[Rfam]
Nucleotides: 046
Base pairs, nucleotide, nucleotide: 007041008040010038011037012036014034015033016032017031
Number, partner (000 for none) and nucleotide at each position: 001000a002000a003000g004000a005000g006000c007041c008040u009000c010038g011037g012036g013000c014034c015033a016032a017031u018000a019000a020000a021000g022000a023000u024000u025000g026000a027000g028000a029000a030000g031017g032016u033015u034014g035000a036012c037011u038010c039000a040008a041007g042000a043000a044000a045000u046000a